[Rfam]
RNA: tRNA
RNA sequence: GCAUCAUUAGUCCAACGGUUAGGAUAUAAGUUUCCCAAACUUGAGAUCCGGGUUCGAUUCCCGGAUGAUGCA
Numbered sequence: 001g002c003a004u005c006a007u008u009a010g011u012c013c014a015a016c017g018g019u020u021a022g023g024a025u026a027u028a029a030g031u032u033u034c035c036c037a038a039a040c041u042u043g044a045g046a047u048c049c050g051g052g053u054u055c056g057a058u059u060c061c062c063g064g065a066u067g068a069u070g071c072a
Stems, first nucleotide, its partner, number of pairs: 001071007010025004027043005048064005